[Rfam]
RNA sequence: UGUCAGUUUCAGGGAAGGUGCAAUUCCUUACUGGCGGUGAUGCCGCAUCCGGGAUUCAUAACGGAAAUGCAGGCGAGCCCGCGACCCGCGAGAGCGGCCGAUUCGGUGAGAAUCCGAAGCCAACGGUUACAGUCCGGAUGGAAGAAACGAGGG
Numbered sequence: 001u002g003u004c005a006g007u008u009u010c011a012g013g014g015a016a017g018g019u020g021c022a023a024u025u026c027c028u029u030a031c032u033g034g035c036g037g038u039g040a041u042g043c044c045g046c047a048u049c050c051g052g053g054a055u056u057c058a059u060a061a062c063g064g065a066a067a068u069g070c071a072g073g074c075g076a077g078c079c080c081g082c083g084a085c086c087c088g089c090g091a092g093a094g095c096g097g098c099c100g101a102u103u104c105g106g107u108g109a110g111a112a113u114c115c116g117a118a119g120c121c122a123a124c125g126g127u128u129a130c131a132g133u134c135c136g137g138a139u140g141g142a143a144g145a146a147a148c149g150a151g152g153g
Base pairs, nucleotide, nucleotide: 003151006148007147008146009145010144016028017027018026030133031132032122033121034082035081036080037079086097087096102118103117104116105115106114124136125135126134
RNA: FMN riboswitch aptamer (RFN element)
Organism: Bifidobacterium reuteri